[Rfam]
RNA sequence: ACACAGAGUCGUCGCAAUGGUAAUCCUGCUCAGUACGAGAGGAACCGCAGGUUCAGACAUUUGGUUUAGGUGCCUGCCCGAUAGGGCAAUGGUGCGACGCUACCAUCUGGGGGAUUAUGGCUGAACGCCUCUAAGUCAGAAUCCCGCCCAGAACAUGGGCACGACGAUACCUUGUGCACCGCCGCCUCCGGGAGGCAAAGAUACGCCGAGCGUCAAGCUCGGUCGGUUCAGCCACAGCACGGGGCCGCUCUGCGGGCCGCUCGACUACGAGCGCCGCGGGCCCUAAGCGAGAUCUAUCCCAUGCGAAAGCAGCGGUGUGAAAUCAUCCGCAGACGACCUAGCUCUCGGUCGGGGUGUCGUACGUAGGCAGAGCAGCUACCACACUGCGAUCCUUUGAGACUUAGCCCUUCGACUAGGAGAUUUGU
Numbered sequence: 001a002c003a004c005a006g007a008g009u010c011g012u013c014g015c016a017a018u019g020g021u022a023a024u025c026c027u028g029c030u031c032a033g034u035a036c037g038a039g040a041g042g043a044a045c046c047g048c049a050g051g052u053u054c055a056g057a058c059a060u061u062u063g064g065u066u067u068a069g070g071u072g073c074c075u076g077c078c079c080g081a082u083a084g085g086g087c088a089a090u091g092g093u094g095c096g097a098c099g100c101u102a103c104c105a106u107c108u109g110g111g112g113g114a115u116u117a118u119g120g121c122u123g124a125a126c127g128c129c130u131c132u133a134a135g136u137c138a139g140a141a142u143c144c145c146g147c148c149c150a151g152a153a154c155a156u157g158g159g160c161a162c163g164a165c166g167a168u169a170c171c172u173u174g175u176g177c178a179c180c181g182c183c184g185c186c187u188c189c190g191g192g193a194g195g196c197a198a199a200g201a202u203a204c205g206c207c208g209a210g211c212g213u214c215a216a217g218c219u220c221g222g223u224c225g226g227u228u229c230a231g232c233c234a235c236a237g238c239a240c241g242g243g244g245c246c247g248c249u250c251u252g253c254g255g256g257c258c259g260c261u262c263g264a265c266u267a268c269g270a271g272c273g274c275c276g277c278g279g280g281c282c283c284u285a286a287g288c289g290a291g292a293u294c295u296a297u298c299c300c301a302u303g304c305g306a307a308a309g310c311a312g313c314g315g316u317g318u319g320a321a322a323u324c325a326u327c328c329g330c331a332g333a334c335g336a337c338c339u340a341g342c343u344c345u346c347g348g349u350c351g352g353g354g355u356g357u358c359g360u361a362c363g364u365a366g367g368c369a370g371a372g373c374a375g376c377u378a379c380c381a382c383a384c385u386g387c388g389a390u391c392c393u394u395u396g397a398g399a400c401u402u403a404g405c406c407c408u409u410c411g412a413c414u415a416g417g418a419g420a421u422u423u424g425u
Stems, first nucleotide, its partner, number of pairs: 008168007018150003023053001025051005054109004062102003070095004075088005111145003118138005178316005184310001320423005326340001329337001347414005352407003356400002365393003369390001372387004

Shown here is a 425-nucleotide part of an RNA from Dreissena polymorpha, a member of the family "Eukaryotic large subunit ribosomal RNA".
Rfam links the family to the GO terms structural constituent of ribosome and ribosome.